[Rfam]
RNA sequence: UUAGUUGGUUGACGACGAGAGAGAGCACGUUUGUCAGCAGUCAUGCAAUGGACAUGUCUGUCUACAUGCGUGCUCUCUUUUGCCGUCAUACAAUU
Numbered sequence: 001u002u003a004g005u006u007g008g009u010u011g012a013c014g015a016c017g018a019g020a021g022a023g024a025g026c027a028c029g030u031u032u033g034u035c036a037g038c039a040g041u042c043a044u045g046c047a048a049u050g051g052a053c054a055u056g057u058c059u060g061u062c063u064a065c066a067u068g069c070g071u072g073c074u075c076u077c078u079u080u081u082g083c084c085g086u087c088a089u090a091c092a093a094u095u
Stems, first nucleotide, its partner, number of pairs: 010088005016082002020078002023075001025073006032066003
This 95-nucleotide RNA from Ricinus communis belongs to the Rfam family "MIR535 microRNA precursor family". Rfam links the family to the GO terms RISC complex and miRNA-mediated post-transcriptional gene silencing. For this family Rfam cites "Conservation and divergence of microRNAs and their functions in Euphorbiaceous plants" (Zeng et al., Nucleic Acids Res, 2010). The source organism's lineage runs through Eukaryota, Streptophytina, rosids, Acalypheae and Ricinus. Rfam 15.1 lists 544 matches to the family in 108 species.